Notes: The record is an 86-nucleotide RNA from Streptomyces olivoverticillatus, which matches "sodF sRNA" in Rfam. The pairing is the family consensus, mapped onto this sequence. A reference for the family is Kim et al. (2014), "Inverse regulation of Fe- and Ni-containing SOD genes by a Fur family regulator Nur through small RNA processed from 3'UTR of the sodF mRNA", Nucleic Acids Res. Rfam classes the family as a small RNA. NCBI's taxonomy places the organism under Bacteria, Bacillati, Actinomycetes, Kitasatosporales, Streptomyces. The family has 6 seed sequences and 336 matches in Rfam 15.1. Gene Ontology terms of the family: mRNA binding, regulation of mRNA stability and negative regulation of translation. It scores 61 bits against the family's covariance model.
RNA sequence: AGGCCGCCUGCUCGUGAUCGUCUUCUCACCCUUCACGCGGCAGGCCGAAGAGGCCCCCGCGCGUUCGGAUCGCGCGGGGGCCUCUU
Numbered sequence: 001a002g003g004c005c006g007c008c009u010g011c012u013c014g015u016g017a018u019c020g021u022c023u024u025c026u027c028a029c030c031c032u033u034c035a036c037g038c039g040g041c042a043g044g045c046c047g048a049a050g051a052g053g054c055c056c057c058c059g060c061g062c063g064u065u066c067g068g069a070u071c072g073c074g075c076g077g078g079g080g081c082c083u084c085u086u
Stems, first nucleotide, its partner, number of pairs: 002046002007044006014036004020030001048086016